[Rfam]
RNA: Bacterial antisense RNA HPnc0260
Organism: Sodalis ligni
RNA sequence: UAUAUUAAAGCAUCGGCGCAAACGGCCUGAUGAUGGGAUGAGAUGGAAGUUCAAACAAAAAAGGGGGUUAAAUCAGAAAAAAAAGGAAACAAUUGAUAUGGUGCGUCCGAGUGGACUCGAACCACCGACCCCCACCA
Numbered sequence: 001u002a003u004a005u006u007a008a009a010g011c012a013u014c015g016g017c018g019c020a021a022a023c024g025g026c027c028u029g030a031u032g033a034u035g036g037g038a039u040g041a042g043a044u045g046g047a048a049g050u051u052c053a054a055a056c057a058a059a060a061a062a063g064g065g066g067g068u069u070a071a072a073u074c075a076g077a078a079a080a081a082a083a084a085g086g087a088a089a090c091a092a093u094u095g096a097u098a099u100g101g102u103g104c105g106u107c108c109g110a111g112u113g114g115a116c117u118c119g120a121a122c123c124a125c126c127g128a129c130c131c132c133c134a135c136c137a
Base pairs, nucleotide, nucleotide: 005041006040007039011035012034013033014032054069055068056067099134100133101132103130108127109126111125112124113123114122